[Rfam]
RNA: ALIL pseudoknot
Organism: Lacisediminihabitans profunda
RNA sequence: AGUUUCUUCGCGCGGGAGCUCGACCCGCGACUGCCGUGGUGACCAUGUUCAUCGAUCAGAACCGUCACUCGUUCGGGGUCGAGCCGAUCUGCCGGGUGCUCACCGAGCACAGCUGCCAGAUUGCCCCG
Numbered sequence: 001a002g003u004u005u006c007u008u009c010g011c012g013c014g015g016g017a018g019c020u021c022g023a024c025c026c027g028c029g030a031c032u033g034c035c036g037u038g039g040u041g042a043c044c045a046u047g048u049u050c051a052u053c054g055a056u057c058a059g060a061a062c063c064g065u066c067a068c069u070c071g072u073u074c075g076g077g078g079u080c081g082a083g084c085c086g087a088u089c090u091g092c093c094g095g096g097u098g099c100u101c102a103c104c105g106a107g108c109a110c111a112g113c114u115g116c117c118a119g120a121u122u123g124c125c126c127c128g
Base pairs, nucleotide, nucleotide: 012028013027014026015025016024074128075127076126077125078124085123086122088120089119090118091117093115094114